[Rfam]
RNA sequence: ACCUCAUCCAGAGGGGCUGAGGGAUACGGCCCGACGACGCCCCGGCAACCACCCACGCGCUCGACGACGAGCGGCGCGGGCAGGUGCCAAUUCCGUCCCCGCCGCAGGGUGCGAUGUGGGGAAAGAUGAGAG
Numbered sequence: 001a002c003c004u005c006a007u008c009c010a011g012a013g014g015g016g017c018u019g020a021g022g023g024a025u026a027c028g029g030c031c032c033g034a035c036g037a038c039g040c041c042c043c044g045g046c047a048a049c050c051a052c053c054c055a056c057g058c059g060c061u062c063g064a065c066g067a068c069g070a071g072c073g074g075c076g077c078g079g080g081c082a083g084g085u086g087c088c089a090a091u092u093c094c095g096u097c098c099c100c101g102c103c104g105c106a107g108g109g110u111g112c113g114a115u116g117u118g119g120g121g122a123a124a125g126a127u128g129a130g131a132g
Stems, first nucleotide, its partner, number of pairs: 003130006013043005021032003026096004044088004049084002052080003092124001097121006
Shown here is a 132-nucleotide RNA sequence from Micromonospora olivasterospora, a member of the family "SAM riboswitch aptamer (S box leader)". The family's consensus secondary structure is taken from published work. It scores 71 bits against the family's covariance model.